Nucleotides: 101
Base pairs, nucleotide, nucleotide: 006098007097008096009095010094011093013091014090015089016088017087018086019085020084021083022082023081024080025079026078027077028076030074031073032072
Number, partner (000 for none) and nucleotide at each position: 001000u002000g003000g004000a005000g006098a007097a008096a009095c010094a011093u012000c013091a014090u015089u016088g017087a018086g019085u020084g021083c022082a023081g024080c025079g026078u027077u028076g029000a030074u031073g032072a033000a034000u035000u036000c037000c038000c039000u040000a041000c042000u043000g044000g045000a046000a047000u048000u049000u050000u051000g052000a053000u054000g055000c056000g057000u058000g059000g060000g061000g062000u063000g064000g065000g066000a067000u068000u069000a070000u071000u072032u073031c074030a075000c076028c077027a078026g079025c080024g081023c082022u083021g084020c085019a086018c087017u088016c089015a090014a091013u092000u093011a094010u095009g096008u097007u098006u099000u100000u101000u